About this RNA:
The record is a 66-nucleotide RNA from Mesorhizobium denitrificans, which matches "S-element" in Rfam. Its family is annotated with mRNA transcription and translation regulator activity in the Gene Ontology. From the family's description: This family represents a group of S-elements from p42d and related plasmids.
RNA sequence: UGUCAAGCGUUUGAACGUCGAUUCGGCGAGCAGGGUUCUUUUGCCUGAUUGAAGGCGAAGAGAAUG
Numbered sequence: 001u002g003u004c005a006a007g008c009g010u011u012u013g014a015a016c017g018u019c020g021a022u023u024c025g026g027c028g029a030g031c032a033g034g035g036u037u038c039u040u041u042u043g044c045c046u047g048a049u050u051g052a053a054g055g056c057g058a059a060g061a062g063a064a065u066g
Stems, first nucleotide, its partner, number of pairs: 010062002012059001016057004022052002025049001028046001030044005